[Rfam]
The family of this 67-nucleotide sequence is "S15-Flavobacteria ribosomal protein leader". The literature on the family includes a 2020 paper in BMC Microbiol by Eckert and Weinberg, "Discovery of 20 novel ribosomal leader candidates in bacteria and archaea". Rfam classes the family as a cis-regulatory leader.
RNA sequence: UACAUUUGCAACUUCAAAUGAAAAAAUCAUUGAUGUACAUAAAAAUCAUUUAAAUAAUAUUGGCAUG
Numbered sequence: 001u002a003c004a005u006u007u008g009c010a011a012c013u014u015c016a017a018a019u020g021a022a023a024a025a026a027u028c029a030u031u032g033a034u035g036u037a038c039a040u041a042a043a044a045a046u047c048a049u050u051u052a053a054a055u056a057a058u059a060u061u062g063g064c065a066u067g
Base pairs, nucleotide, nucleotide: 014033015032016031017030019029